[Rfam]
RNA sequence: AGUGAACUUCGUUUGCAAUGGAAAUCCUUUUUAUUGUCAAAUUCUGAAAGGUUUGACUAUAAAAAGAUUGUAAUAAAUAGCGGGAUUAAGC
Numbered sequence: 001a002g003u004g005a006a007c008u009u010c011g012u013u014u015g016c017a018a019u020g021g022a023a024a025u026c027c028u029u030u031u032u033a034u035u036g037u038c039a040a041a042u043u044c045u046g047a048a049a050g051g052u053u054u055g056a057c058u059a060u061a062a063a064a065a066g067a068u069u070g071u072a073a074u075a076a077a078u079a080g081c082g083g084g085a086u087u088a089a090g091c
Stems, first nucleotide, its partner, number of pairs: 009083003013079001018074002023069004029064006036057008
Description: Shown here is a 91-nucleotide sequence from Flavobacterium micromati, a member of the family "Flavo-1 RNA". The match comes from Rfam's covariance-model search (50 bits). The organism belongs to Flavobacterium, within Bacteria.